[Rfam]
RNA sequence: GAGAUAGCCGACUAACUAGUUGCGAGAUCGGAGUCUCAGUCUAGUUCA
Numbered sequence: 001g002a003g004a005u006a007g008c009c010g011a012c013u014a015a016c017u018a019g020u021u022g023c024g025a026g027a028u029c030g031g032a033g034u035c036u037c038a039g040u041c042u043a044g045u046u047c048a
Stems, first nucleotide, its partner, number of pairs: 001036001003034001008031002012026001015045005